[Rfam]
RNA sequence: GACAAUUGCAUAGCCACACAGGAUGGGUGGCGGUACACCCCAAAGAAAGGGGGUGCCGCUUUAUGACGACUUUUCAGACAUUAACCUUAAUGAUCGCGUUUGCCGCGCUAGUCGUUUCGAUUAUAAAUACAAAAAAAUAACCCAUCCUGACACAUUCGACGGUUAAGGAUGGGUUAUUUUUAUCACCUGUCAAGGCCGCCACUUAUAAGGUGGCAUCAAUUGUCCGGAAGAGAGAUGUUGCUGCAUCUCUC
Numbered sequence: 001g002a003c004a005a006u007u008g009c010a011u012a013g014c015c016a017c018a019c020a021g022g023a024u025g026g027g028u029g030g031c032g033g034u035a036c037a038c039c040c041c042a043a044a045g046a047a048a049g050g051g052g053g054u055g056c057c058g059c060u061u062u063a064u065g066a067c068g069a070c071u072u073u074u075c076a077g078a079c080a081u082u083a084a085c086c087u088u089a090a091u092g093a094u095c096g097c098g099u100u101u102g103c104c105g106c107g108c109u110a111g112u113c114g115u116u117u118c119g120a121u122u123a124u125a126a127a128u129a130c131a132a133a134a135a136a137a138u139a140a141c142c143c144a145u146c147c148u149g150a151c152a153c154a155u156u157c158g159a160c161g162g163u164u165a166a167g168g169a170u171g172g173g174u175u176a177u178u179u180u181u182a183u184c185a186c187c188u189g190u191c192a193a194g195g196c197c198g199c200c201a202c203u204u205a206u207a208a209g210g211u212g213g214c215a216u217c218a219a220u221u222g223u224c225c226g227g228a229a230g231a232g233a234g235a236u237g238u239u240g241c242u243g244c245a246u247c248u249c250u251c
Stems, first nucleotide, its partner, number of pairs: 001224005007218002017198001019149008029141001036055006065116007079092002102108001161187003199213004230251009
The record is a 251-nucleotide RNA sequence from Bacillus thermotolerans, which matches "BsrG" in Rfam. It scores 77 bits against the family's covariance model. About the family: bsrE, bsrG and bsrH pair through intermolecular interactions with antisense sRNAs. They form type I toxin/antitoxin system that includes an mRNA encoding for a short, toxic peptide (bsrE, bsrG and bsrH) and an antitoxin that is comprised of an antisense RNA. bsrG encodes a 39-amino-acid toxin, and the 180 nucleotide antisense sRNA called SR4 acts as the antitoxin (they overlap by 123 nucleotides). SR4 interaction with the 3'UTR of bsrG RNA promotes bsrG degradation and inhibits its translation.